[Rfam]
This 59-nucleotide RNA sequence from Arthrobacter sp. SW1 belongs to the Rfam family "msiK RNA". The base pairs follow the family's consensus structure, which is taken from published work. Lineage of the source: Bacteria > Bacillati > Actinomycetota > Micrococcales > Arthrobacter. A search with the family's covariance model found it, with a score of 65 bits. It is annotated as a cis-regulatory element.

RNA sequence: AAAAAGAACCAUUCACAACGGAUCGUCCGGCACGUACCUGCCGGUGAAGGGAAAUGAGA
Numbered sequence: 001a002a003a004a005a006g007a008a009c010c011a012u013u014c015a016c017a018a019c020g021g022a023u024c025g026u027c028c029g030g031c032a033c034g035u036a037c038c039u040g041c042c043g044g045u046g047a048a049g050g051g052a053a054a055u056g057a058g059a
Base pairs, nucleotide, nucleotide: 009051010050012048013047014046015045027044028043029042030041031040032039